[Rfam]
RNA sequence: CCGGUCGAGGGGCGCUGCAGCGGGCUGCUCUUGCAUGGAGCAGCCCGUCAGGCUCGACCGGGGCGUUUAUCCGAACGCAUCAACGGCGCCCAUUCGCA
Numbered sequence: 001c002c003g004g005u006c007g008a009g010g011g012g013c014g015c016u017g018c019a020g021c022g023g024g025c026u027g028c029u030c031u032u033g034c035a036u037g038g039a040g041c042a043g044c045c046c047g048u049c050a051g052g053c054u055c056g057a058c059c060g061g062g063g064c065g066u067u068u069a070u071c072c073g074a075a076c077g078c079a080u081c082a083a084c085g086g087c088g089c090c091c092a093u094u095c096g097c098a
Stems, first nucleotide, its partner, number of pairs: 002060007021047011
The record is a 98-nucleotide RNA sequence from Pseudomonas flexibilis, which matches "SAH (S-adenosyl-L-homocysteine) riboswitch aptamer" in Rfam. For this family Rfam cites "Riboswitches that sense S-adenosylhomocysteine and activate genes involved in coenzyme recycling" (Wang et al., Mol Cell, 2008).